[Rfam]
RNA sequence: UACGCCCCAGGCCAAACCUCGGGGUGGGGCGAUGCGCCUGGCGAGUUAAGUCGGCAAAA
Numbered sequence: 001u002a003c004g005c006c007c008c009a010g011g012c013c014a015a016a017c018c019u020c021g022g023g024g025u026g027g028g029g030c031g032a033u034g035c036g037c038c039u040g041g042c043g044a045g046u047u048a049a050g051u052c053g054g055c056a057a058a059a
Stems, first nucleotide, its partner, number of pairs: 004042003009039004017029004

The record is a 59-nucleotide RNA sequence from Mikania micrantha, which matches "Pyrobaculum sRNA 205" in Rfam. Pairs were carried over by alignment from the consensus structure. The match comes from Rfam's covariance-model search (37 bits). The literature on the family includes a 2012 paper in RNA by Bernick et al., "Discovery of Pyrobaculum small RNA families with atypical pseudouridine guide RNA features". Its family is annotated with RNA processing in the Gene Ontology.